RNA sequence: CCCAGCGGUAGUCAGCUGUCCGGGGCUUUCCAUGCCUGUGACCGUGUUACACUGCUGGUAGAUAGAAUCACUACUGCCUCCUGCUGGUGGCCAUCGCUGCCGUUCUGGUGACGUGUCCCACUAGCAUUUAGUAGUGUUGUGAUUCCUCGAGAGUGCGCCUCGCAGGACCUUCUGUUUGGCGCUAGUUUGGGAUCGCACAGU
Numbered sequence: 001c002c003c004a005g006c007g008g009u010a011g012u013c014a015g016c017u018g019u020c021c022g023g024g025g026c027u028u029u030c031c032a033u034g035c036c037u038g039u040g041a042c043c044g045u046g047u048u049a050c051a052c053u054g055c056u057g058g059u060a061g062a063u064a065g066a067a068u069c070a071c072u073a074c075u076g077c078c079u080c081c082u083g084c085u086g087g088u089g090g091c092c093a094u095c096g097c098u099g100c101c102g103u104u105c106u107g108g109u110g111a112c113g114u115g116u117c118c119c120a121c122u123a124g125c126a127u128u129u130a131g132u133a134g135u136g137u138u139g140u141g142a143u144u145c146c147u148c149g150a151g152a153g154u155g156c157g158c159c160u161c162g163c164a165g166g167a168c169c170u171u172c173u174g175u176u177u178g179g180c181g182c183u184a185g186u187u188u189g190g191g192a193u194c195g196c197a198c199a200g201u
Base pairs, nucleotide, nucleotide: 002058003057004056005055006054007053008052009051011050012049015045016044018042019041020040021038022037023036024035069136070135071134072133073132074131075130076129082126083125084124085123087119089117090116091115094113098110099109100108101107139196140195141194142193143192144191145190146189155182156181157180159178162175163174164173165172